Vault RNA: a 122-nucleotide RNA sequence from Dicentrarchus labrax. A reference for the family is Stadler et al. (2009), "Evolution of Vault RNAs", Mol Biol Evol.
RNA sequence: GCAUCGGUUUAGCUCAAUGGUUACUUCGUGAAAACUUACAUACUCUCUACACGGUCCGCAGGUUCUGUCAGCAGCUCCUUCGGGCCGCAGGAGUUCGACCAUGGGCGCUGUCCGAUGUUUUU
Numbered sequence: 001g002c003a004u005c006g007g008u009u010u011a012g013c014u015c016a017a018u019g020g021u022u023a024c025u026u027c028g029u030g031a032a033a034a035c036u037u038a039c040a041u042a043c044u045c046u047c048u049a050c051a052c053g054g055u056c057c058g059c060a061g062g063u064u065c066u067g068u069c070a071g072c073a074g075c076u077c078c079u080u081c082g083g084g085c086c087g088c089a090g091g092a093g094u095u096c097g098a099c100c101a102u103g104g105g106c107g108c109u110g111u112c113c114g115a116u117g118u119u120u121u122u
Stems, first nucleotide, its partner, number of pairs: 002117006012106004017102004026098003
Overview
Rfam classes the family as a non-coding RNA gene.